The family of this 64-nucleotide RNA sequence from Ameiurus melas is "Small nucleolar RNA SNORD58". Gene Ontology terms of the family: RNA processing and nucleolus. About the family: snoRNA U58 is found in introns 1, 3 and 6 of the ribosomal protein RPL17 gene in humans. The literature on the family includes a 2002 paper in Mol Cell Biol by Galardi et al., "Purified box C/D snoRNPs are able to reproduce site-specific 2'-O-methylation of target RNA in vitro".

RNA sequence: CUGCAAUGAAGACAUCUUAGGACACCUUUGGAUUUACAAUGAAAAGAAUCUUUACCUGAGCAGC
Numbered sequence: 001c002u003g004c005a006a007u008g009a010a011g012a013c014a015u016c017u018u019a020g021g022a023c024a025c026c027u028u029u030g031g032a033u034u035u036a037c038a039a040u041g042a043a044a045a046g047a048a049u050c051u052u053u054a055c056c057u058g059a060g061c062a063g064c
Base pairs, nucleotide, nucleotide: 001063002062003061004060